[Rfam]
RNA sequence: UUCCCUAUCGGAACUCUGACUGUGACCUGUGUAGUAUCUUUAAUAUCACAUCACAGGCAGAGUUCUAGUUAGGUGA
Numbered sequence: 001u002u003c004c005c006u007a008u009c010g011g012a013a014c015u016c017u018g019a020c021u022g023u024g025a026c027c028u029g030u031g032u033a034g035u036a037u038c039u040u041u042a043a044u045a046u047c048a049c050a051u052c053a054c055a056g057g058c059a060g061a062g063u064u065c066u067a068g069u070u071a072g073g074u075g076a
Stems, first nucleotide, its partner, number of pairs: 004073003009068001010066007020056006029049003